[Rfam]
RNA sequence: UCUGGAUCAAUGAUGUUACUUGAAAACUGUCAUCUACCUCUAAUUUUGUAAAAUGGAUUGAUGAUAAUAGUCAGAUACUGAUCCUGU
Numbered sequence: 001u002c003u004g005g006a007u008c009a010a011u012g013a014u015g016u017u018a019c020u021u022g023a024a025a026a027c028u029g030u031c032a033u034c035u036a037c038c039u040c041u042a043a044u045u046u047u048g049u050a051a052a053a054u055g056g057a058u059u060g061a062u063g064a065u066a067a068u069a070g071u072c073a074g075a076u077a078c079u080g081a082u083c084c085u086g087u
Base pairs, nucleotide, nucleotide: 002086004084005083006082007081
Dot-bracket structure: .(.((((.........................................................................)))).).
The record is an 87-nucleotide RNA sequence from Protea cynaroides, which matches "Small nucleolar RNA snoR27" in Rfam. Pairs were carried over by alignment from the consensus structure, which was predicted with WAR. Taxonomically the source falls in Protea (Eukaryota, Viridiplantae, Streptophytina, Proteales). The literature on the family includes a 2001 paper in RNA by Brown et al., "Multiple snoRNA gene clusters from Arabidopsis". Rfam links the family to the GO terms RNA processing and nucleolus.